[Rfam]
RNA sequence: CUCUCAUCAAGAGAGGUGGAGGGACACGGCCCGACGAAGCCCGGCAACCCACUUAUCUCGCUUUAGAGGUGUUCGGUUACGGACGCGCGAGUGAGAAGGGUGCCAAUUCCGGCGGAGAUUUUGUAUCCGCAAGAUGAGGG
Numbered sequence: 001c002u003c004u005c006a007u008c009a010a011g012a013g014a015g016g017u018g019g020a021g022g023g024a025c026a027c028g029g030c031c032c033g034a035c036g037a038a039g040c041c042c043g044g045c046a047a048c049c050c051a052c053u054u055a056u057c058u059c060g061c062u063u064u065a066g067a068g069g070u071g072u073u074c075g076g077u078u079a080c081g082g083a084c085g086c087g088c089g090a091g092u093g094a095g096a097a098g099g100g101u102g103c104c105a106a107u108u109c110c111g112g113c114g115g116a117g118a119u120u121u122u123g124u125a126u127c128c129g130c131a132a133g134a135u136g137a138g139g140g
Base pairs, nucleotide, nucleotide: 001140002139003138004137005136006135007134008133013042015041016040017039021032022031023030027111028110029109043104044103045102046101048100049099108132113129114128115127116126118124
The record is a 140-nucleotide RNA from Ktedonospora formicarum, which matches "SAM riboswitch aptamer (S box leader)" in Rfam. NCBI's taxonomy places the organism under Bacteria, Bacillati, Chloroflexota, Ktedonobacterales, Ktedonospora. The family's consensus secondary structure is taken from published work. Its family is annotated with regulation of gene expression in the Gene Ontology.